Shown here is a 74-nucleotide RNA sequence from Natronosalvus rutilus, a member of the family "tRNA".
The family's consensus secondary structure is taken from published work.
The organism belongs to Natronosalvus, within Archaea.
Rfam classes the family as a transfer RNA.
From the family's description: Transfer RNA (tRNA) molecules are approximately 80 nucleotides in length.

RNA sequence: CCGCUCUUAGCUCAGCCUGGUAGAGCAGUCGACUGUAGAUCGACUUGCCCCCCGUUCAAAUCGGGGAGAGCGGA
Numbered sequence: 001c002c003g004c005u006c007u008u009a010g011c012u013c014a015g016c017c018u019g020g021u022a023g024a025g026c027a028g029u030c031g032a033c034u035g036u037a038g039a040u041c042g043a044c045u046u047g048c049c050c051c052c053c054g055u056u057c058a059a060a061u062c063g064g065g066g067a068g069a070g071c072g073g074a
Stems, first nucleotide, its partner, number of pairs: 001073007010026004028044005050066005